The family of this 140-nucleotide RNA from Lampropedia puyangensis is "Bacterial antisense RNA HPnc0260".
[Rfam]
RNA sequence: CGUUUCGCAGUUGUUUUGCGCAAAAAAAAAACCGCACAAAAAUGUGCGGUUCAUUUAUUUCCAAUGAAUCUUAUUUUUUUGAAUAAUUCAAAAAAAAUCAUUGGUAGGCGCGAUUGGAUUCGAACCAACGACCCCCACCA
Numbered sequence: 001c002g003u004u005u006c007g008c009a010g011u012u013g014u015u016u017u018g019c020g021c022a023a024a025a026a027a028a029a030a031a032c033c034g035c036a037c038a039a040a041a042a043u044g045u046g047c048g049g050u051u052c053a054u055u056u057a058u059u060u061c062c063a064a065u066g067a068a069u070c071u072u073a074u075u076u077u078u079u080u081g082a083a084u085a086a087u088u089c090a091a092a093a094a095a096a097a098u099c100a101u102u103g104g105u106a107g108g109c110g111c112g113a114u115u116g117g118a119u120u121c122g123a124a125c126c127a128a129c130g131a132c133c134c135c136c137a138c139c140a
Base pairs, nucleotide, nucleotide: 006048007047008046012042014040015039065073066072067071102137103136104135107132111130112129114128115127116126117125
Dot-bracket structure: .....(((...(.((.......................)).)...)))................(((...)))............................(((..(...((.((((.......)))))).)..)))...
The match comes from Rfam's covariance-model search (60 bits).